[Rfam]
RNA sequence: GAAUUGCUGUGGCAUACGAAUUCACAUCUAAGUGUUGACCGACUAUUUUUUUGUAUUAUCGGGAAACAAAAGUCUUCUGACAGUAUGCAGGCCGUUUCACGCGGAAGCAACUAAAGUCAGAGCGAGUUGCCCACCUGCUUAAGCGUGCGGGUUCAAUACAAAACGUGAAUCAUCGGUGCCAAUACAGCAUUUUC
Number, nucleotide and partner (000 for none) at each position: 001g000002a192003a191004u000005u189006g188007c187008u186009g185010u184011g183012g179013c178014a177015u176016a000017c175018g174019a173020a000021u000022u000023c000024a000025c000026a000027u000028c000029u000030a000031a000032g159033u158034g157035u156036u155037g154038a153039c151040c150041g000042a000043c000044u000045a000046u000047u000048u000049u000050u000051u000052u000053g000054u000055a000056u000057u000058a000059u000060c000061g132062g131063g130064a000065a128066a127067c126068a000069a000070a000071a000072g000073u000074c000075u122076u121077c120078u119079g118080a117081c116082a000083g000084u000085a000086u000087g108088c107089a000090g000091g000092c104093c103094g102095u101096u000097u000098c000099a000100c000101g095102c094103g093104g092105a000106a000107g088108c087109a000110a000111c000112u000113a000114a000115a000116g081117u080118c079119a078120g077121a076122g075123c000124g000125a000126g067127u066128u065129g000130c063131c062132c061133a000134c000135c000136u000137g000138c000139u000140u000141a000142a000143g000144c000145g000146u000147g000148c000149g000150g040151g039152u000153u038154c037155a036156a035157u034158a033159c032160a000161a000162a000163a000164c000165g000166u000167g000168a000169a000170u000171c000172a000173u019174c018175g017176g015177u014178g013179c012180c000181a000182a000183u011184a010185c009186a008187g007188c006189a005190u000191u003192u002193u000194c000
RNA: 6S / SsrS RNA